[Rfam]
RNA sequence: GCAGGCUCACUCUGCACCCGGCCGCACACCCGGGCGGGUGCUUUUUCCGUCUGCCAGAGAAACAUGCCAGGGAGCUGUGGCCACACCUCGACCUGUGGGGGGUGAUGCAGCUGCCCUGGGACACGGCG
Number, nucleotide and partner (000 for none) at each position: 001g054002c053003a052004g051005g050006c049007u000008c000009a000010c000011u000012c000013u000014g041015c040016a039017c038018c037019c036020g035021g000022c033023c032024g031025c000026a000027c000028a000029c000030c000031c024032g023033g022034g000035c020036g019037g018038g017039u016040g015041c014042u000043u000044u000045u000046u000047c000048c000049g006050u005051c004052u003053g002054c001055c000056a000057g000058a000059g000060a000061a000062a000063c000064a000065u000066g000067c119068c118069a117070g116071g115072g114073a000074g111075c110076u109077g108078u107079g106080g000081c000082c000083a000084c104085a103086c102087c101088u100089c000090g000091a000092c000093c000094u000095g000096u000097g000098g000099g000100g088101g087102g086103u085104g084105a000106u079107g078108c077109a076110g075111c074112u000113g000114c072115c071116c070117u069118g068119g067120g000121a000122c000123a000124c000125g000126g000127c000128g000